[Rfam]
Nucleotides: 176
Base pairs, nucleotide, nucleotide: 007170008169009168010167011166016080017079018078019077021075022074023073024072033064034063035062036061037060038059039058040057084116085115086114087113088112089111090110092108093107094106095105117143118142119141120140121139122138123137124136125135126134127133145161146160147159148158149157
Number, partner (000 for none) and nucleotide at each position: 001000c002000g003000a004000u005000g006000a007170g008169a009168u010167a011166g012000a013000g014000g015000c016080g017079c018078a019077a020000g021075a022074u023073a024072a025000a026000a027000a028000g029000a030000g031000u032000a033064c034063c035062a036061u037060c038059u039058u040057u041000g042000a043000g044000c045000u046000g047000u048000c049000a050000g051000c052000a053000a054000u055000g056000a057040g058039a059038a060037g061036a062035u063034g064033g065000g066000a067000a068000a069000g070000g071000g072024u073023u074022a075021u076000g077019u078018u079017g080016c081000c082000g083000a084116a085115g086114c087113a088112a089111g090110c091000g092108u093107u094106u095105u096000u097000u098000u099000g100000a101000c102000a103000a104000a105095a106094a107093a108092a109000g110090g111089u112088u113087u114086g115085c116084u117143g118142g119141u120140a121139a122138a123137g124136g125135g126134c127133u128000a129000a130000a131000c132000a133127a134126g135125u136124u137123c138122u139121u140120u141119a142118c143117u144000g145161u146160c147159a148158u149157g150000u151000c152000u153000a154000u155000a156000a157149c158148g159147u160146g161145g162000a163000g164000a165000g166011c167010u168009g169008u170007u171000g172000a173000u174000c175000g176000a